Annotation
The family of this 53-nucleotide sequence from Olea europaea is "Plastid-atpF group II-D1 intron".
RNA sequence: GAGAAAAUUAUCGAUAUAGAACACUCAUCUCGAUAAAAUGAUUUGAAAAACGG
Numbered sequence: 001g002a003g004a005a006a007a008u009u010a011u012c013g014a015u016a017u018a019g020a021a022c023a024c025u026c027a028u029c030u031c032g033a034u035a036a037a038a039u040g041a042u043u044u045g046a047a048a049a050a051c052g053g
Base pairs, nucleotide, nucleotide: 011033012032013031014030016028017027

Taxonomically the source falls in Olea europaea (Eukaryota, Spermatophyta, lamiids, Lamiales). For this family Rfam cites "Retrograde signaling in plants: A critical review focusing on the GUN pathway and beyond" (Richter et al., Plant Commun, 2023). Rfam's curators write: Plastid atpF is a non-coding RNA (ncRNA) recognised in plastids. It has been reported in the intron group II-D1 region of ATP synthase (atpF) genes. It scores 52 bits against the family's covariance model.